Shown here is a 96-nucleotide sequence from Pyrus ussuriensis x Pyrus communis, a member of the family "Small nucleolar RNA snoR109".
Lineage of the source: Eukaryota > Tracheophyta > eudicotyledons > Maleae > Pyrus.
Pairs were carried over by alignment from the consensus structure, which was predicted with WAR.
By type it is an H/ACA-box small nucleolar RNA.

[Rfam]
RNA sequence: CCGCUGUAGCCAAAUCAAAUAGUUGAGAAGUUUACGGGCCGGCUGUUGUGAGAUUUCUCUCUGUUGACUGAUCUGCUUACCGAGCUUCUCACAUUU
Numbered sequence: 001c002c003g004c005u006g007u008a009g010c011c012a013a014a015u016c017a018a019a020u021a022g023u024u025g026a027g028a029a030g031u032u033u034a035c036g037g038g039c040c041g042g043c044u045g046u047u048g049u050g051a052g053a054u055u056u057c058u059c060u061c062u063g064u065u066g067a068c069u070g071a072u073c074u075g076c077u078u079a080c081c082g083a084g085c086u087u088c089u090c091a092c093a094u095u096u
Base pairs, nucleotide, nucleotide: 025090026089027088028087029086030085031084032083037077038076039075041073042072044070045068046067047066048065